A member of the RNA family "Eukaryotic large subunit ribosomal RNA" from Pichia kudriavzevii, 475 nucleotides of a longer RNA.
Lineage of the source: Eukaryota > Fungi > Ascomycota > Saccharomycotina > Pichia.
For this family Rfam cites "Crystal structure of the ribosome at 5.5 A resolution" (Yusupov et al., Science, 2001).
The match comes from Rfam's covariance-model search (3261 bits).
Nucleotides: 475
Stems, first nucleotide, its partner, number of pairs: 001441004010435007018427003035059005044049001060198002063195006069187005075176004082171004087160003091156002094153003098149001100146003104141002108137013199203001211420007218412002222236003239275008250262004279406003283337003288334002290330004295326001298325003306317004338356006357361001377393005454471005
Number, partner (000 for none) and nucleotide at each position: 001441u002440a003439g004438a005000a006000u007000a008000a009000u010435g011434u012433a013432g014431a015430u016429a017000a018427g019426g020425g021000a022000a023000g024000u025000c026000g027000g028000c029000a030000a031000a032000a033000u034000a035059g036058a037057u038056c039055c040000g041000u042000a043000a044049c045000u046000u047000c048000g049044g050000g051000a052000u053000a054000a055039g056038g057037a058036u059035u060198g061197g062000c063195u064194c065193u066192a067191a068190g069187g070186g071185u072184u073183g074000g075176g076175c077174g078173g079000a080000g081000u082171g083170c084169u085168g086000g087160g088159g089158c090000u091156g092155c093000c094153g095152g096151c097000g098149c099000g100146u101145g102144c103000c104141g105140g106000g107000u108137g109136c110135u111134g112133c113132g114131g115130a116129g117128a118127c119126g120125c121000a122000u123000c124000u125120g126119u127118g128117u129116u130115u131114c132113u133112g134111c135110g136109g137108c138000u139000g140105c141104c142000u143000g144102g145101c146100g147000g148000c149098g150000g151096g152095c153094u154000u155092g156091c157000g158089g159088c160087c161000u162000g163000u164000u165000u166000u167000u168085c169084a170083g171082u172000c173078c174077c175076g176075c177000g178000g179000u180000u181000a182000a183073c184072a185071a186070c187069c188000g189000a190068c191067u192066u193065a194064g195063a196000a197061c198060u199203g200000g201000u202000a203199c204000g205000g206000a207000c208000a209000a210000g211420g212419g213418g214417a215416a216415u217414c218412u219411g220000a221000c222236u223235g224234u225000c226000u227000a228000a229000u230000u231000a232000a233000a234224a235223c236222a237000u238000a239275g240274c241273a242272u243271u244270g245269c246268g247000a248000u249000g250262g251261u252260c253259a254000g255000a256000a257000a258000g259253u260252g261251a262250u263000g264000u265000u266000g267000a268246c269245g270244c271243a272242a273241u274240g275239u276000g277000a278000u279406u280405u281404c282000u283337g284336c285335c286000c287000a288334g289333u290330g291329c292328u293327c294000u295326g296000a297000a298325u299324g300323u301000c302000a303000a304000a305000g306317u307316g308315a309314a310000g311000a312000a313000a314309u315308u316307c317306a318000a319000c320000c321000a322000a323300g324299c325298g326295c327293g328292g329291g330290u331000a332000a333289a334288c335285g336284g337283c338356g339355g340354g341353a342352g343351u344000a345000a346000c347000u348000a349000u350000g351343a352342c353341u354340c355339u356338c357361u358000u359000a360000a361357g362000g363000u364000a365000g366000c367000c368000a369000a370000a371000u372000g373000c374000c375000u376000c377393g378392u379391c380390a381389u382000c383000u384000a385000a386000u387000u388000a389381g390380u391379g392378a393377c394000g395000c396000g397000c398000a399000u400000g401000a402000a403000u404281g405280g406279a407000u408000u409000a410000a411219c412218g413000a414217g415216a416215u417214u418213c419212c420211c421000a422000c423000u424000g425020u426019c427018c428000c429016u430015a431014u432013c433012u434011a435010c436000u437000a438004u439003c440002u441001a442000g443000c444000g445000a446000a447000a448000c449000c450000a451000c452000a453000g454471c455470c456469a457468a458467g459000g460000g461000a462000a463000c464000g465000g466000g467458c468457u469456u470455g471454g472000c473000a474000g475000a